[Rfam]
Rfam assigns this 136-nucleotide RNA from Lactovum miscens to the family "FMN riboswitch aptamer (RFN element)". From the family's description: The RFN element is a highly conserved domain that is found frequently in the 5'-untranslated regions of prokaryotic mRNAs that encode for flavin mononucleotide (FMN) biosynthesis and transport proteins. Lineage of the source: Bacteria > Bacillota > Lactobacillales > Streptococcaceae > Lactovum.

RNA sequence: AAUUAUCUUCAGGGCACCGUGUAAUUCGGGACCGGCAGUUAUAGUCUGCGAAGCUUUAAAGCUUGACUCAGUGAAAUUCUGAGACCGACAGUUGAAUACAGUAGUAUUCAGAUAGUCUGGAUGGGAGAAGAGGUCA
Numbered sequence: 001a002a003u004u005a006u007c008u009u010c011a012g013g014g015c016a017c018c019g020u021g022u023a024a025u026u027c028g029g030g031a032c033c034g035g036c037a038g039u040u041a042u043a044g045u046c047u048g049c050g051a052a053g054c055u056u057u058a059a060a061g062c063u064u065g066a067c068u069c070a071g072u073g074a075a076a077u078u079c080u081g082a083g084a085c086c087g088a089c090a091g092u093u094g095a096a097u098a099c100a101g102u103a104g105u106a107u108u109c110a111g112a113u114a115g116u117c118u119g120g121a122u123g124g125g126a127g128a129a130g131a132g133g134u135c136a
Stems, first nucleotide, its partner, number of pairs: 004133001006131005017029003033087002035049004044085002052063003067083005089119003